RNA sequence: AUACCAUAAAUAAAGGCCAUAGUAGAAGAGCUCACAGCAUGGCCCGUCAGUUUCUAACAAAUCUGCAAAUUCUGCU
Numbered sequence: 001a002u003a004c005c006a007u008a009a010a011u012a013a014a015g016g017c018c019a020u021a022g023u024a025g026a027a028g029a030g031c032u033c034a035c036a037g038c039a040u041g042g043c044c045c046g047u048c049a050g051u052u053u054c055u056a057a058c059a060a061a062u063c064u065g066c067a068a069a070u071u072c073u074g075c076u
Stems, first nucleotide, its partner, number of pairs: 015044004021076007028040001030038001048065003052061002

Rfam assigns this 76-nucleotide RNA from Alligator mississippiensis to the family "Mammalian CPEB3 ribozyme". The family's consensus secondary structure is taken from published work.